[Rfam]
RNA sequence: CCAAGCUGUGAUUGUCCAAACGCAAUUCUUGUACACUGAUAAAUAGCCAAGAACUGUGUGGGGACAUCAAUGCUCGG
Numbered sequence: 001c002c003a004a005g006c007u008g009u010g011a012u013u014g015u016c017c018a019a020a021c022g023c024a025a026u027u028c029u030u031g032u033a034c035a036c037u038g039a040u041a042a043a044u045a046g047c048c049a050a051g052a053a054c055u056g057u058g059u060g061g062g063g064a065c066a067u068c069a070a071u072g073c074u075c076g077g
Stems, first nucleotide, its partner, number of pairs: 002076001004074003009069004014065004021058004026053006
This 77-nucleotide sequence from Oppiella nova belongs to the Rfam family "mir-219 microRNA precursor family". A reference for the family is Lim et al. (2003), "Vertebrate microRNA genes", Science. The family's consensus secondary structure was predicted with RNAalifold. Rfam 15.1 lists 1,318 matches to the family in 774 species. The match comes from Rfam's covariance-model search (63 bits).